[Rfam]
RNA: c-di-AMP riboswitch aptamer (ydaO/yuaA leader)
Organism: Corynebacterium riegelii
RNA sequence: ACAACAUAUAAGCCGAAUUUCACGGCAUGGUCACAAAGGGUGGCCAGGAUGUGGAAGCCGGGGGCCCACAACAGGAUCCAAAUGGAUCCACCCCCUGGGGUGAAUGGCCGCAAGGAUAGCGCGACAAGCGCUACGGAGUGAGCCAGGGCUGGCUCUCAAGCCCAACCCGACAGCUAACCCGGUAGGCACUGAGAUGAUAUGGA
Dot-bracket structure: ...........(((...(((((((.........................)))))))((((((....((...........................))(((.....(((.................................)))..((((........))))...))).........)))))).)))................